[Rfam]
RNA sequence: UAAUUCCUUGGAUGUUCGAUAACUCUUACUUUUUUUGAACCUACAUUUGACAUAACGGGAUUCCAAUAUUUUUAAGCGGAUGUCAGGCCUCCCUUCGAGUGGAAGACAGAUGUUUAAGUGAGGUUGCCCACCUGGCGCGGCUAGGAGUCAAUCUGGUAAGAGCCGGCAUUUCGGGGUUACU
Numbered sequence: 001u002a003a004u005u006c007c008u009u010g011g012a013u014g015u016u017c018g019a020u021a022a023c024u025c026u027u028a029c030u031u032u033u034u035u036u037g038a039a040c041c042u043a044c045a046u047u048u049g050a051c052a053u054a055a056c057g058g059g060a061u062u063c064c065a066a067u068a069u070u071u072u073u074a075a076g077c078g079g080a081u082g083u084c085a086g087g088c089c090u091c092c093c094u095u096c097g098a099g100u101g102g103a104a105g106a107c108a109g110a111u112g113u114u115u116a117a118g119u120g121a122g123g124u125u126g127c128c129c130a131c132c133u134g135g136c137g138c139g140g141c142u143a144g145g146a147g148u149c150a151a152u153c154u155g156g157u158a159a160g161a162g163c164c165g166g167c168a169u170u171u172c173g174g175g176g177u178u179a180c181u
Stems, first nucleotide, its partner, number of pairs: 003178001005176004010171006017165002036150003040145002057129003063123002068119001071118007083106002088102002091099001
RNA: 6S / SsrS RNA
Organism: butyrate-producing bacterium SM4/1